[Rfam]
RNA sequence: CGCAGAGUAGAGAUAAAAGCGUUAAGUACCCACGAACGGGGAGUUGUCGUGUGGGCGAAAAGGUUUCCUUGCGGUUUUUAUCUCGCAUCCCGCUGUU
Numbered sequence: 001c002g003c004a005g006a007g008u009a010g011a012g013a014u015a016a017a018a019g020c021g022u023u024a025a026g027u028a029c030c031c032a033c034g035a036a037c038g039g040g041g042a043g044u045u046g047u048c049g050u051g052u053g054g055g056c057g058a059a060a061a062g063g064u065u066u067c068c069u070u071g072c073g074g075u076u077u078u079u080a081u082c083u084c085g086c087a088u089c090c091c092g093c094u095g096u097u
Stems, first nucleotide, its partner, number of pairs: 002096004010084010020073003026056002029054002031051005039090003043086001060070004
THF (Tetrahydrofolate) riboswitch aptamer: a 97-nucleotide RNA from Hoskinsella hominis. The organism belongs to Hoskinsella, within Bacteria. Rfam's curators write: Tetrahydrofolate (THF) riboswitch was first reported for Ames et al. as an RNA motif in 5' untranslated (5'-UTR)regions of folate transport and biosynthesis genes in Firmicutes genomes. On this family, see Ames et al., Chem Biol 2010: "A eubacterial riboswitch class that senses the coenzyme tetrahydrofolate". It scores 76 bits against the family's covariance model.